RNA sequence: CAACCUCUAGCGAAAGACGUGUAUGUUG
Numbered sequence: 001c002a003a004c005c006u007c008u009a010g011c012g013a014a015a016g017a018c019g020u021g022u023a024u025g026u027u028g
Stems, first nucleotide, its partner, number of pairs: 001028004008023001010020003
Dot-bracket structure: ((((...(.(((.....)))..).))))

This 28-nucleotide RNA sequence from Flavobacterium sp. 9AF belongs to the Rfam family "L19-Flavobacteria ribosomal protein leader". The family's RNA type in Rfam is cis-regulatory leader. The match comes from Rfam's covariance-model search (37 bits). The literature on the family includes a 2020 paper in BMC Microbiol by Eckert and Weinberg, "Discovery of 20 novel ribosomal leader candidates in bacteria and archaea". NCBI's taxonomy places the organism under Bacteria, Pseudomonadati, Flavobacteriia, Flavobacteriales, Flavobacterium.